The record is a 152-nucleotide RNA sequence from Paenibacillus oceani, which matches "c-di-AMP riboswitch aptamer (ydaO/yuaA leader)" in Rfam. NCBI's taxonomy places the organism under Bacteria, Bacillati, Bacillota, Bacilli, Paenibacillus.
RNA sequence: AAUAACAGUACGCUUAAUUUCCGAUUCUCCAAUCGGAAAGCGGGGGAACCAUUCUUUAGGGGCGAAUCGUCCGGUCCGUUCAUCGGGACCGCGUAGGGAACCAUCUUUCCCGAGUCCGUCAGCUAACCUCGUCAGCAGUAGAUGGGGUCAUU
Numbered sequence: 001a002a003u004a005a006c007a008g009u010a011c012g013c014u015u016a017a018u019u020u021c022c023g024a025u026u027c028u029c030c031a032a033u034c035g036g037a038a039a040g041c042g043g044g045g046g047a048a049c050c051a052u053u054c055u056u057u058a059g060g061g062g063c064g065a066a067u068c069g070u071c072c073g074g075u076c077c078g079u080u081c082a083u084c085g086g087g088a089c090c091g092c093g094u095a096g097g098g099a100a101c102c103a104u105c106u107u108u109c110c111c112g113a114g115u116c117c118g119u120c121a122g123c124u125a126a127c128c129u130c131g132u133c134a135g136c137a138g139u140a141g142a143u144g145g146g147g148u149c150a151u152u
Stems, first nucleotide, its partner, number of pairs: 012136003018039009040132006050059001060117003068093003096111004

This family represents a conserved RNA structure found upstream of the ydaO and yuaA genes in Bacillus subtilis and related genes in other bacteria. It scores 78 bits against the family's covariance model.